[Rfam]
RNA sequence: UGAGCAGCUAUGGUACUGCGCACAUCACUUAGAUGAGUUCCAGCAAGUAACACAUGGG
Numbered sequence: 001u002g003a004g005c006a007g008c009u010a011u012g013g014u015a016c017u018g019c020g021c022a023c024a025u026c027a028c029u030u031a032g033a034u035g036a037g038u039u040c041c042a043g044c045a046a047g048u049a050a051c052a053c054a055u056g057g058g
Stems, first nucleotide, its partner, number of pairs: 020038002023035004